Annotation: This 51-nucleotide RNA sequence from Acetobacter pomorum belongs to the Rfam family "Xanthine riboswitch aptamer (NMT1 RNA)".
RNA sequence: AAAGUGAGUAGAAGCGGUCGGAAUGGAAAUAUUCUGGGCAUUGCUCCACCA
Numbered sequence: 001a002a003a004g005u006g007a008g009u010a011g012a013a014g015c016g017g018u019c020g021g022a023a024u025g026g027a028a029a030u031a032u033u034c035u036g037g038g039c040a041u042u043g044c045u046c047c048a049c050c051a
Stems, first nucleotide, its partner, number of pairs: 006046005015036001018038002021034005
Dot-bracket structure: .....(((((....[..((.(((((....))))).]))...))))).....

Pairs were carried over by alignment from the consensus structure, which is taken from published work. The organism belongs to Acetobacter pomorum, within Bacteria. For this family Rfam cites "Insights into xanthine riboswitch structure and metal ion-mediated ligand recognition" (Xu et al., Nucleic Acids Res, 2021).